[Rfam]
RNA sequence: AGCUUUGCGGCAGUGGCAGUAUCAUAGCCAAUGAGGUUUAAAGCGCGGUGAUUAUUGCUAGUUGAAAACUUUUCCCAAUACCCCGCCAGGAUGACUUGAAAUACAGUCAGCAUUGGCAAUUUUGACAGUCUUCAGGAGGA
Numbered sequence: 001a002g003c004u005u006u007g008c009g010g011c012a013g014u015g016g017c018a019g020u021a022u023c024a025u026a027g028c029c030a031a032u033g034a035g036g037u038u039u040a041a042a043g044c045g046c047g048g049u050g051a052u053u054a055u056u057g058c059u060a061g062u063u064g065a066a067a068a069c070u071u072u073u074c075c076c077a078a079u080a081c082c083c084c085g086c087c088a089g090g091a092u093g094a095c096u097u098g099a100a101a102u103a104c105a106g107u108c109a110g111c112a113u114u115g116g117c118a119a120u121u122u123u124g125a126c127a128g129u130c131u132u133c134a135g136g137a138g139g140a
Stems, first nucleotide, its partner, number of pairs: 021052003027049003035044001037042001085117003088113001090111001092109005129140004
A member of the RNA family "U4 spliceosomal RNA" from Hymenochirus boettgeri, 140 nucleotides long. Pairs were carried over by alignment from the consensus structure, which is taken from published work. U4 small nuclear RNA (U4 snRNA) is a component of the major U2-dependent spliceosome. Rfam classes the family as a spliceosomal small nuclear RNA. The organism belongs to Hymenochirus, within Eukaryota. A search with the family's covariance model found it, with a score of 82 bits.